[Rfam]
RNA sequence: UUAUAAACUCGUUAGGUGAGGCUCCUGGGUGGAUAUAAGCUGCUGCCCAAAAACGUCGAGAGACGCCAAUGGGUAUAACAGACAGUGUCGGCUUAAGGCCUGUCUAAUGCAGCUGGUCCUCUUCUACCUUAUUAGAUAUUAAAUUUCGGAUCUACGUCACCCAGUGCCAAAGCUAAGACGAGGAGUGCGUAA
Numbered sequence: 001u002u003a004u005a006a007a008c009u010c011g012u013u014a015g016g017u018g019a020g021g022c023u024c025c026u027g028g029g030u031g032g033a034u035a036u037a038a039g040c041u042g043c044u045g046c047c048c049a050a051a052a053a054c055g056u057c058g059a060g061a062g063a064c065g066c067c068a069a070u071g072g073g074u075a076u077a078a079c080a081g082a083c084a085g086u087g088u089c090g091g092c093u094u095a096a097g098g099c100c101u102g103u104c105u106a107a108u109g110c111a112g113c114u115g116g117u118c119c120u121c122u123u124c125u126a127c128c129u130u131a132u133u134a135g136a137u138a139u140u141a142a143a144u145u146u147c148g149g150a151u152c153u154a155c156g157u158c159a160c161c162c163a164g165u166g167c168c169a170a171a172g173c174u175a176a177g178a179c180g181a182g183g184a185g186u187g188c189g190u191a192a
Stems, first nucleotide, its partner, number of pairs: 007186004011179002013096001015174003020168003025164008039113005045074005054065004081104004087099003115152005